[Rfam]
RNA sequence: AAGAAGAAGAGAGUCAGAGCAAAACUAAAAGUGGAAACUAAUCUAUCUCCCAGCAGAGUGCAGCCAAUCAACAUCGUCUAGAACUUAAAAAAUGUAAGAUCAAGCUGAGGUUGGUUUGCUGCAGUCUGCUGGGAGAUUAGAUUAGUUUCCUCUUUUAGUUUGGCAGAUUCUCCUCUUAUU
Numbered sequence: 001a002a003g004a005a006g007a008a009g010a011g012a013g014u015c016a017g018a019g020c021a022a023a024a025c026u027a028a029a030a031g032u033g034g035a036a037a038c039u040a041a042u043c044u045a046u047c048u049c050c051c052a053g054c055a056g057a058g059u060g061c062a063g064c065c066a067a068u069c070a071a072c073a074u075c076g077u078c079u080a081g082a083a084c085u086u087a088a089a090a091a092a093u094g095u096a097a098g099a100u101c102a103a104g105c106u107g108a109g110g111u112u113g114g115u116u117u118g119c120u121g122c123a124g125u126c127u128g129c130u131g132g133g134a135g136a137u138u139a140g141a142u143u144a145g146u147u148u149c150c151u152c153u154u155u156u157a158g159u160u161u162g163g164c165a166g167a168u169u170c171u172c173c174u175c176u177u178a179u180u
Stems, first nucleotide, its partner, number of pairs: 001180002004177004009172005015166001019164002022161010033150013046136006053129005059123003063119002066116002069113004074108003078104002081101002084098004
The family of this 180-nucleotide RNA from Salix koriyanagi is "MIR6457 microRNA precursor family". It scores 143 bits against the family's covariance model. The family's consensus secondary structure was predicted with RNAalifold. Rfam links the family to the GO terms RISC complex and miRNA-mediated post-transcriptional gene silencing.